A member of the RNA family "Betaproteobacteria toxic small RNA" from Massilia psychrophila, 68 nucleotides long. Rfam 15.1 lists 951 matches to the family in 508 species. A reference for the family is Sass et al. (2017), "Identification of small RNAs abundant in Burkholderia cenocepacia biofilms reveal putative regulators with a potential role in carbon and iron metabolism", Sci Rep. Overexpression in amino aid rich medium attenuates growth, suggesting role in repressing amino acid intake and metabolism. It scores 56 bits against the family's covariance model. The base pairs follow the family's consensus structure, which was predicted with WAR.

RNA sequence: UGUCUCCUCCAAUUUUUCCCACAUAAAUUGGAUUGCCGCCCGCACCGCAAGGUCGCGGGCGUUUUUUU
Numbered sequence: 001u002g003u004c005u006c007c008u009c010c011a012a013u014u015u016u017u018c019c020c021a022c023a024u025a026a027a028u029u030g031g032a033u034u035g036c037c038g039c040c041c042g043c044a045c046c047g048c049a050a051g052g053u054c055g056c057g058g059g060c061g062u063u064u065u066u067u068u
Base pairs, nucleotide, nucleotide: 008032009031010030011029012028013027014026015025037061038060039059040058041057042056043055